[Rfam]
This 184-nucleotide sequence from Streptomyces sp. SDr-06 belongs to the Rfam family "c-di-AMP riboswitch aptamer (ydaO/yuaA leader)".
RNA sequence: CCGGAAGGAACGCCGAAUCCUGCCGCCGUCCGGAGCCUCCCAGACACGUACGGCAGGAGCGGGGGACCCAGGUAAGCCGCCGGUCCGGAUUCCGGACCGGCUGGGGUGAAGUCGCGUGUGCCGCGACCGGACAUCUCCCGUCCGAACCCGACAGCUCACCUCGUAGGCGACGGAGAGGAAGAAC
Numbered sequence: 001c002c003g004g005a006a007g008g009a010a011c012g013c014c015g016a017a018u019c020c021u022g023c024c025g026c027c028g029u030c031c032g033g034a035g036c037c038u039c040c041c042a043g044a045c046a047c048g049u050a051c052g053g054c055a056g057g058a059g060c061g062g063g064g065g066a067c068c069c070a071g072g073u074a075a076g077c078c079g080c081c082g083g084u085c086c087g088g089a090u091u092c093c094g095g096a097c098c099g100g101c102u103g104g105g106g107u108g109a110a111g112u113c114g115c116g117u118g119u120g121c122c123g124c125g126a127c128c129g130g131a132c133a134u135c136u137c138c139c140g141u142c143c144g145a146a147c148c149c150g151a152c153a154g155c156u157c158a159c160c161u162c163g164u165a166g167g168c169g170a171c172g173g174a175g176a177g178g179a180a181g182a183a184c
Stems, first nucleotide, its partner, number of pairs: 011169004018058008059164006069103002104149003112126004129143004
Record summary:
Its family is annotated with regulation of gene expression and cyclic-di-AMP binding in the Gene Ontology.